This 83-nucleotide RNA sequence from Zea mays belongs to the Rfam family "mir-160 microRNA precursor family". On this family, see Rhoades et al., Cell 2002: "Prediction of plant microRNA targets". Rfam 15.1 lists 1,502 matches to the family in 247 species.
[Rfam]
RNA sequence: AUAUGCCUGGCUCCCUGUAUGCCGCUCGCAUGGCUACCACCGCCUGUGGUCGUUGCGGCUGGCGUGCGAGGUGCCAGGCAUGU
Numbered sequence: 001a002u003a004u005g006c007c008u009g010g011c012u013c014c015c016u017g018u019a020u021g022c023c024g025c026u027c028g029c030a031u032g033g034c035u036a037c038c039a040c041c042g043c044c045u046g047u048g049g050u051c052g053u054u055g056c057g058g059c060u061g062g063c064g065u066g067c068g069a070g071g072u073g074c075c076a077g078g079c080a081u082g083u
Base pairs, nucleotide, nucleotide: 001083002082003081004080005079006078008076009075010074011073013071014070016068017067018066019065020064021063022062023061024060027057028056029055